[Rfam]
RNA sequence: ACUCUUUAGUGUUGGACUUAAUUGUCUAGUCGGGUGUUUAGCCAGACUCUAACUUAUUGAACGGC
Number, nucleotide and partner (000 for none) at each position: 001a000002c000003u064004c063005u061006u060007u059008a058009g057010u000011g000012u000013u000014g000015g000016a000017c000018u000019u000020a000021a000022u000023u000024g000025u000026c000027u000028a048029g047030u046031c045032g000033g043034g042035u041036g000037u000038u000039u000040a000041g035042c034043c033044a000045g031046a030047c029048u028049c000050u000051a000052a000053c000054u000055u000056a000057u009058u008059g007060a006061a005062c000063g004064g003065c000
RNA: Retron msr RNA